Rfam assigns this 128-nucleotide sequence from Rhizobacter sp. Root29 to the family "ZMP/ZTP riboswitch aptamer (pfl RNA motif)".
RNA sequence: CGCGGGCUGCGCAACUGGCGAUGGGGCACCGGGCAUCAAGCCCGCGAGCCUGAGGUGGUGAACCACCGGGAAGCGCAGCCGGUUCCGGGUUUCCGGCACCGGUUCAGCCGUUCGCCUGGGCAGCCCUG
Numbered sequence: 001c002g003c004g005g006g007c008u009g010c011g012c013a014a015c016u017g018g019c020g021a022u023g024g025g026g027c028a029c030c031g032g033g034c035a036u037c038a039a040g041c042c043c044g045c046g047a048g049c050c051u052g053a054g055g056u057g058g059u060g061a062a063c064c065a066c067c068g069g070g071a072a073g074c075g076c077a078g079c080c081g082g083u084u085c086c087g088g089g090u091u092u093c094c095g096g097c098a099c100c101g102g103u104u105c106a107g108c109c110g111u112u113c114g115c116c117u118g119g120g121c122a123g124c125c126c127u128g
Stems, first nucleotide, its partner, number of pairs: 003082001005080008015070002017116005055066004105123001107121003
It scores 54 bits against the family's covariance model. NCBI's taxonomy places the organism under Bacteria, Pseudomonadota, Betaproteobacteria, Burkholderiales, Rhizobacter.